Shown here is an 87-nucleotide sequence from Mus spicilegus, a member of the family "mir-3473 microRNA precursor family".

RNA sequence: ACCGCUGAGCCACCUCUCCAGCCCACAAAGUACUUUUUUUAAAGGAUAAAAUAUGUAAGAAUUGGGCUGGAGAGAUGGCUCAGUGGG
Number, nucleotide and partner (000 for none) at each position: 001a000002c086003c085004g084005c083006u082007g081008a080009g079010c078011c077012a076013c000014c074015u073016c072017u071018c070019c069020a068021g067022c066023c065024c064025a000026c000027a000028a000029a000030g000031u000032a000033c000034u000035u000036u000037u000038u000039u000040u000041a000042a000043a000044g000045g000046a000047u000048a000049a000050a000051a000052u000053a000054u000055g000056u000057a000058a000059g000060a000061a000062u000063u000064g024065g023066g022067c021068u020069g019070g018071a017072g016073a015074g014075a000076u012077g011078g010079c009080u008081c007082a006083g005084u004085g003086g002087g000

The source organism's lineage runs through Eukaryota, Opisthokonta, Deuterostomia, Murinae and Mus.